[Rfam]
This 88-nucleotide RNA from Vagococcus carniphilus belongs to the Rfam family "SAM-III riboswitch aptamer (SMK box)". A search with the family's covariance model found it, with a score of 68 bits. Its family is annotated with regulation of translational initiation and methionine adenosyltransferase activity in the Gene Ontology.

RNA sequence: CAAUGUUGCAAGAUUCCCGAUAGGAUUUACGUCUAUGUGUAAAGAUUCCUUGUAACCGAUAAAACAAAUAGGGGGAAUACCGAAAAUG
Numbered sequence: 001c002a003a004u005g006u007u008g009c010a011a012g013a014u015u016c017c018c019g020a021u022a023g024g025a026u027u028u029a030c031g032u033c034u035a036u037g038u039g040u041a042a043a044g045a046u047u048c049c050u051u052g053u054a055a056c057c058g059a060u061a062a063a064a065c066a067a068a069u070a071g072g073g074g075g076a077a078u079a080c081c082g083a084a085a086a087u088g
Stems, first nucleotide, its partner, number of pairs: 014077005022050003026043005056072002

A reference for the family is Wang et al. (2008), "Riboswitches that sense S-adenosylhomocysteine and activate genes involved in coenzyme recycling", Mol Cell.